Bacterial RNase P class B: a 362-nucleotide RNA from Lacticaseibacillus camelliae.

RNA sequence: GUUCUCGAGUAAUCGCGCCAGGCUGAUGUCUGGUGAGGAAAGUCCAUGCCCGCCCAAGCUGCGAUGCUUGGAGUGUUCGCGUCAGGCCCAAUAAGCCUGAGUACCGUUUUACGGUAACGGCGACCCAAAGCGCUAAGGCUUCGGCUAUGCGUGAGUCGGUCUGAAAAGUGCCACAGAGACGAUGCUGACGGGAAACCGUCAGCUUGGAACGGGUAAACCCCGCGAGCGAGUAACCCAAACUUUGGUAGGGGCGCAAGGCCUAGGAAAUUGAACCGAUGGCCCUAACAGCGAAAGCUGAGAUAGAUGAUUACUGAAGGCACCUUGGCCUGACUUGGUGCUGGAACAAAACAUGGCUUAUAGAG
Numbered sequence: 001g002u003u004c005u006c007g008a009g010u011a012a013u014c015g016c017g018c019c020a021g022g023c024u025g026a027u028g029u030c031u032g033g034u035g036a037g038g039a040a041a042g043u044c045c046a047u048g049c050c051c052g053c054c055c056a057a058g059c060u061g062c063g064a065u066g067c068u069u070g071g072a073g074u075g076u077u078c079g080c081g082u083c084a085g086g087c088c089c090a091a092u093a094a095g096c097c098u099g100a101g102u103a104c105c106g107u108u109u110u111a112c113g114g115u116a117a118c119g120g121c122g123a124c125c126c127a128a129a130g131c132g133c134u135a136a137g138g139c140u141u142c143g144g145c146u147a148u149g150c151g152u153g154a155g156u157c158g159g160u161c162u163g164a165a166a167a168g169u170g171c172c173a174c175a176g177a178g179a180c181g182a183u184g185c186u187g188a189c190g191g192g193a194a195a196c197c198g199u200c201a202g203c204u205u206g207g208a209a210c211g212g213g214u215a216a217a218c219c220c221c222g223c224g225a226g227c228g229a230g231u232a233a234c235c236c237a238a239a240c241u242u243u244g245g246u247a248g249g250g251g252c253g254c255a256a257g258g259c260c261u262a263g264g265a266a267a268u269u270g271a272a273c274c275g276a277u278g279g280c281c282c283u284a285a286c287a288g289c290g291a292a293a294g295c296u297g298a299g300a301u302a303g304a305u306g307a308u309u310a311c312u313g314a315a316g317g318c319a320c321c322u323u324g325g326c327c328u329g330a331c332u333u334g335g336u337g338c339u340g341g342a343a344c345a346a347a348a349c350a351u352g353g354c355u356u357a358u359a360g361a362g
Stems, first nucleotide, its partner, number of pairs: 004362003007358001008312007016035006040356003044353005049230001051228003054071006077225005082100006101118001102116006119220002122161004130152004137146003168218002170214003184203008234250003255283001257281004286297004316339006
Overview:
It is annotated as a ribozyme. The family's consensus secondary structure is taken from published work.